[Rfam]
RNA sequence: GGUCAGCGAUGGGUGUUGGCAUGUAUUAUCUGAGCUGGAGCUGAUGUCUGUCACCACUUGAGCUCUCGAAUGACUCUGAGACCCA
Numbered sequence: 001g002g003u004c005a006g007c008g009a010u011g012g013g014u015g016u017u018g019g020c021a022u023g024u025a026u027u028a029u030c031u032g033a034g035c036u037g038g039a040g041c042u043g044a045u046g047u048c049u050g051u052c053a054c055c056a057c058u059u060g061a062g063c064u065c066u067c068g069a070a071u072g073a074c075u076c077u078g079a080g081a082c083c084c085a
Stems, first nucleotide, its partner, number of pairs: 001083004